[Rfam]
RNA sequence: CUGCCUCGGCGAACAUUCAACGCUGUCGGUGAGUUUGGUUUGAGUAGCACAUAAACCAUCGACCGUUGACUGUGCCCCGUGGCUCG
Numbered sequence: 001c002u003g004c005c006u007c008g009g010c011g012a013a014c015a016u017u018c019a020a021c022g023c024u025g026u027c028g029g030u031g032a033g034u035u036u037g038g039u040u041u042g043a044g045u046a047g048c049a050c051a052u053a054a055a056c057c058a059u060c061g062a063c064c065g066u067u068g069a070c071u072g073u074g075c076c077c078c079g080u081g082g083c084u085c086g
Stems, first nucleotide, its partner, number of pairs: 001086001003084001004082002007079002014072002017069006025063007033056004

The family of this 86-nucleotide sequence from Poecilia reticulata is "mir-181 microRNA precursor family". A search with the family's covariance model found it, with a score of 70 bits.